[Rfam]
RNA sequence: GCAACCUGAGGCUGGCCGGGCAGGACCGCACCGUGUUCCUGAGCCUGCUCGGCAUUUCGUGGCUGUGGUUCGUCGGCGCGACCUUCCUGACCUCGUUCUUUCCGUUCGCGAAGGACGUGCUG
Numbered sequence: 001g002c003a004a005c006c007u008g009a010g011g012c013u014g015g016c017c018g019g020g021c022a023g024g025a026c027c028g029c030a031c032c033g034u035g036u037u038c039c040u041g042a043g044c045c046u047g048c049u050c051g052g053c054a055u056u057u058c059g060u061g062g063c064u065g066u067g068g069u070u071c072g073u074c075g076g077c078g079c080g081a082c083c084u085u086c087c088u089g090a091c092c093u094c095g096u097u098c099u100u101u102c103c104g105u106u107c108g109c110g111a112a113g114g115a116c117g118u119g120c121u122g
Stems, first nucleotide, its partner, number of pairs: 010049003014045002021041002024038002027035003051121005057115002060112001064104002067099002071095002075091001077089002080087001
This 122-nucleotide RNA from Burkholderia glumae belongs to the Rfam family "Burkholderia RNA 11". It scores 67 bits against the family's covariance model. The organism belongs to Burkholderia glumae, within Bacteria. The family's consensus secondary structure was predicted with RNAfold. Rfam's curators write: Co-purified with Hfq, expression confirmed by Northern blot. Predicted target marZ. Overlaps coding sequence. On this family, see Ramos et al., Genomics 2013: "Experimental identification of small non-coding regulatory RNAs in the opportunistic human pathogen Burkholderia cenocepacia J2315".